This 118-nucleotide RNA from Lederbergia citrea belongs to the Rfam family "ylbH leader". Rfam's curators write: This family is a putative regulatory RNA structure that is found upstream of the ylbH gene in B. subtilis and related low GC Gram-positive bacteria. The literature on the family includes a 2004 paper in Proc Natl Acad Sci U S A by Barrick et al., "New RNA motifs suggest an expanded scope for riboswitches in bacterial genetic control". A search with the family's covariance model found it, with a score of 105 bits. Gene Ontology term of the family: regulation of gene expression. Pairs were carried over by alignment from the consensus structure. Lineage of the source: Bacteria > Bacillati > Bacilli > Bacillaceae > Lederbergia.
RNA sequence: AUAAAAAACCCUGCAUUUUCAUGCAGGGCCCUUCUAUGUCCAUUAAAACGGAUAGAAGGCAAAGGGAGAGGAGAAACCGGAGGAAGAACUUAUGGGGAAACGUAAGUCUUCUCCGCGG
Numbered sequence: 001a002u003a004a005a006a007a008a009c010c011c012u013g014c015a016u017u018u019u020c021a022u023g024c025a026g027g028g029c030c031c032u033u034c035u036a037u038g039u040c041c042a043u044u045a046a047a048a049c050g051g052a053u054a055g056a057a058g059g060c061a062a063a064g065g066g067a068g069a070g071g072a073g074a075a076a077c078c079g080g081a082g083g084a085a086g087a088a089c090u091u092a093u094g095g096g097g098a099a100a101c102g103u104a105a106g107u108c109u110u111c112u113c114c115g116c117g118g
Base pairs, nucleotide, nucleotide: 009028010027011026012025013024014023015022016021029066030065031064032063033062037054038053039052040051041050078115079114080113081112083111084110085109086108088107089106090105091104092103